[Rfam]
RNA sequence: UUGGCGAUUCACUCUAAGUUCGAAUACCGAGCCCUGUUAAAAACAGCUUGGUGUUCUACCUUACAGUGACUCGACUA
Numbered sequence: 001u002u003g004g005c006g007a008u009u010c011a012c013u014c015u016a017a018g019u020u021c022g023a024a025u026a027c028c029g030a031g032c033c034c035u036g037u038u039a040a041a042a043a044c045a046g047c048u049u050g051g052u053g054u055u056c057u058a059c060c061u062u063a064c065a066g067u068g069a070c071u072c073g074a075c076u077a
Stems, first nucleotide, its partner, number of pairs: 006072002009069005015063003025053008